[Rfam]
RNA sequence: GUUCCUCAUCCUUACUCCAGGGAAUUGUUGCUGGUACUAUCCCUGGCAUUAACUGAGGAUAAAUCAAUUGCUCUCACUCCAAUCCUUGAAAAUGUUUUCAGUAGGAGCAGGAAUGCUGGGCAGACAUC
Numbered sequence: 001g002u003u004c005c006u007c008a009u010c011c012u013u014a015c016u017c018c019a020g021g022g023a024a025u026u027g028u029u030g031c032u033g034g035u036a037c038u039a040u041c042c043c044u045g046g047c048a049u050u051a052a053c054u055g056a057g058g059a060u061a062a063a064u065c066a067a068u069u070g071c072u073c074u075c076a077c078u079c080c081a082a083u084c085c086u087u088g089a090a091a092a093u094g095u096u097u098u099c100a101g102u103a104g105g106a107g108c109a110g111g112a113a114u115g116c117u118g119g120g121c122a123g124a125c126a127u128c
Base pairs, nucleotide, nucleotide: 003059004058005057006056007055008054017046018045019044020043021042022041024040025039027037028036069122070121071120073118083106084105085104086101087100088099089098
RNA: Small nucleolar RNA SNORA49